This 136-nucleotide sequence from Nitrosomonas sp. Nm58 belongs to the Rfam family "Group II catalytic intron D1-D4-4". About the family: Group II introns are found in rRNA, tRNA and mRNA of organelles in fungi, plants and protists, and also in mRNA in bacteria. The source organism's lineage runs through Bacteria, Betaproteobacteria, Nitrosomonadales, Nitrosomonadaceae and Nitrosomonas. Pairs were carried over by alignment from the consensus structure. A reference for the family is Lehmann and Schmidt (2003), "Group II introns: structure and catalytic versatility of large natural ribozymes", Crit Rev Biochem Mol Biol.
RNA sequence: CAGCAGGAGACAGAUCUGCCGGGGAAAGAGUCAGAAGCUCCGUAGCUUGGAUAGCAGGGUGGCGGGUAACCAACAUCCUGAAGCCUAUCGACAAGACUUUCCUUGGGGAAGUGCAAGUCAUGAGAACGGUAUGAGU
Numbered sequence: 001c002a003g004c005a006g007g008a009g010a011c012a013g014a015u016c017u018g019c020c021g022g023g024g025a026a027a028g029a030g031u032c033a034g035a036a037g038c039u040c041c042g043u044a045g046c047u048u049g050g051a052u053a054g055c056a057g058g059g060u061g062g063c064g065g066g067u068a069a070c071c072a073a074c075a076u077c078c079u080g081a082a083g084c085c086u087a088u089c090g091a092c093a094a095g096a097c098u099u100u101c102c103u104u105g106g107g108g109a110a111g112u113g114c115a116a117g118u119c120a121u122g123a124g125a126a127c128g129g130u131a132u133g134a135g136u
Stems, first nucleotide, its partner, number of pairs: 020042005050089005055080006064071002096112006114128001